[Rfam]
RNA sequence: CGUAGCCGGAAACCAGCACGGGCGUCGAGGCAACUCUACGCCCGUGCACGCAUGUUAGGGGCUAGUAAGAAAAU
Numbered sequence: 001c002g003u004a005g006c007c008g009g010a011a012a013c014c015a016g017c018a019c020g021g022g023c024g025u026c027g028a029g030g031c032a033a034c035u036c037u038a039c040g041c042c043c044g045u046g047c048a049c050g051c052a053u054g055u056u057a058g059g060g061g062c063u064a065g066u067a068a069g070a071a072a073a074u
Base pairs, nucleotide, nucleotide: 002013016047017046018045019044020043021042022041023040024039027036028035029034
RNA: tpke11